[Rfam]
RNA sequence: GUUUCUUAAUGACAGCUACAGAUUAAACCGUUGGCCUCUGUAGCCAGAUGAAGUGAAAC
Numbered sequence: 001g002u003u004u005c006u007u008a009a010u011g012a013c014a015g016c017u018a019c020a021g022a023u024u025a026a027a028c029c030g031u032u033g034g035c036c037u038c039u040g041u042a043g044c045c046a047g048a049u050g051a052a053g054u055g056a057a058a059c
Base pairs, nucleotide, nucleotide: 001059002058003057004056005055015044016043017042018041019040020039021038022037029034
Selenocysteine insertion sequence 1: a 59-nucleotide RNA sequence from Cynoglossus semilaevis. Rfam classes the family as a cis-regulatory element. The base pairs follow the family's consensus structure, which is taken from published work. It scores 36 bits against the family's covariance model. Rfam's curators write: The incorporation of selenocysteine into a protein sequence is directed by an in-frame UGA codon (usually a stop codon) within the coding region of the mRNA. Selenoprotein mRNAs contain a conserved secondary structure in the 3' UTR that is required for the distinction of UGA stop from UGA selenocysteine. The selenocysteine insertion sequence (SECIS) is around 60 nt in length and adopts a hairpin structure which is sufficiently well-defined and conserved to act as a computational screen for selenoprotein genes. The source organism's lineage runs through Eukaryota, Chordata, Gnathostomata, Cynoglossidae and Cynoglossus.